Background:
The family of this 134-nucleotide RNA from Faucicola osloensis is "Glycine riboswitch aptamer". NCBI's taxonomy places the organism under Bacteria, Pseudomonadati, Pseudomonadota, Moraxellaceae, Faucicola. The base pairs follow the family's consensus structure.
RNA sequence: UACAACAAAUCUGGAGAGUGUAUUGCUUUGCAAUGCCACCGAAGGGGAAAAGAUUGACUUGUCUAUUUAUAGUAUAAGAAGUAAGAAGUGACAAGUCGAUUGAAAAUCUCAGGUAACAGGACAGAUAGGGCUGA
Numbered sequence: 001u002a003c004a005a006c007a008a009a010u011c012u013g014g015a016g017a018g019u020g021u022a023u024u025g026c027u028u029u030g031c032a033a034u035g036c037c038a039c040c041g042a043a044g045g046g047g048a049a050a051a052g053a054u055u056g057a058c059u060u061g062u063c064u065a066u067u068u069a070u071a072g073u074a075u076a077a078g079a080a081g082u083a084a085g086a087a088g089u090g091a092c093a094a095g096u097c098g099a100u101u102g103a104a105a106a107u108c109u110c111a112g113g114u115a116a117c118a119g120g121a122c123a124g125a126u127a128g129g130g131c132u133g134a
Base pairs, nucleotide, nucleotide: 006129009126010125011124012123013122020036021035022034023033038114039113040112041110042109045108046107051101052100